[Rfam]
RNA sequence: UGAUCAAUGAUGAGCAUAAUUGUCUGAGGAUGCUGAGGGACUCAUUCUAGAUGUCAAUCUGAGGUCC
Numbered sequence: 001u002g003a004u005c006a007a008u009g010a011u012g013a014g015c016a017u018a019a020u021u022g023u024c025u026g027a028g029g030a031u032g033c034u035g036a037g038g039g040a041c042u043c044a045u046u047c048u049a050g051a052u053g054u055c056a057a058u059c060u061g062a063g064g065u066c067c
Stems, first nucleotide, its partner, number of pairs: 002066004